[Rfam]
RNA sequence: CUGUGUCUAGCUUCAACAGUGUUUGGACCGAACAG
Numbered sequence: 001c002u003g004u005g006u007c008u009a010g011c012u013u014c015a016a017c018a019g020u021g022u023u024u025g026g027a028c029c030g031a032a033c034a035g
Stems, first nucleotide, its partner, number of pairs: 001035004006031002010028001012027005017021001
RNA: Iron response element I